[Rfam]
RNA: chrB-a RNA
Organism: Phyllobacterium sp. YR620
RNA sequence: CUUAUGGGGAUUGCGAUCUCCCCACGAGGCGUCAUGCCCAAGUAUCGCGUCCAACAACCCCACUUUAGCGGAGGGACGCGAAAUG
Number, nucleotide and partner (000 for none) at each position: 001c000002u000003u000004a000005u024006g023007g022008g021009g020010a019011u000012u000013g000014c000015g000016a000017u000018c000019u010020c009021c008022c007023c006024a005025c000026g000027a000028g000029g000030c000031g000032u000033c000034a000035u000036g000037c000038c000039c000040a000041a000042g000043u000044a000045u000046c000047g079048c078049g077050u076051c075052c074053a000054a000055c000056a000057a000058c000059c000060c000061c000062a000063c000064u000065u000066u000067a000068g000069c000070g000071g000072a000073g000074g052075g051076a050077c049078g048079c047080g000081a000082a000083a000084u000085g000